This 113-nucleotide RNA sequence from Peptoniphilus sp. BV3C26 belongs to the Rfam family "FMN riboswitch aptamer (RFN element)". Pairs were carried over by alignment from the consensus structure, which is taken from published work. The source organism's lineage runs through Bacteria, Bacillota, Tissierellia, Peptoniphilaceae and Peptoniphilus. Rfam links the family to the GO term FMN binding. It scores 115 bits against the family's covariance model.

[Rfam]
RNA sequence: ACUUAUCUUCAGGGCGAGGUGUAAAUCCUCACCGGCGGUUAUAGUCCGCGAGUUUUAACUGAAUCGGUGAAAUUCCGAUACCGACGGUAUAGUCCGGAUGAAAGAAGAUUUUU
Number, nucleotide and partner (000 for none) at each position: 001a000002c000003u000004u000005a109006u108007c107008u106009u105010c104011a000012g000013g000014g000015c000016g000017a029018g028019g027020u000021g000022u000023a000024a000025a000026u000027c019028c018029u017030c000031a093032c092033c083034g082035g049036c048037g047038g046039u000040u000041a000042u000043a000044g081045u080046c038047c037048g036049c035050g000051a000052g059053u058054u000055u000056u000057a000058a053059c052060u000061g000062a000063a079064u078065c077066g076067g075068u000069g000070a000071a000072a000073u000074u000075c067076c066077g065078a064079u063080a045081c044082c034083g033084a000085c096086g095087g094088u000089a000090u000091a000092g032093u031094c087095c086096g085097g000098a000099u000100g000101a000102a000103a000104g010105a009106a008107g007108a006109u005110u000111u000112u000113u000